[Rfam]
RNA sequence: AAUAAGCAACAAGGGGGCUGGUGCAAGCCGGCUGAGAUUAAGACUAUAUGCGUCUUUGACCUUAUAACCUGAUCUGGAUAAUGCCAGCGUAGGAAAGUGCAAUACAUAAAUU
Dot-bracket structure: .....(((..((((.((((((......))))).......((((.........)))))..))))....((((..((((......))))..))))....)))............
Shown here is a 112-nucleotide sequence from Clostridium sp. C105KSO13, a member of the family "TPP riboswitch aptamer (THI element)". The source organism's lineage runs through Bacteria, Clostridia, Eubacteriales, Clostridiaceae and Clostridium.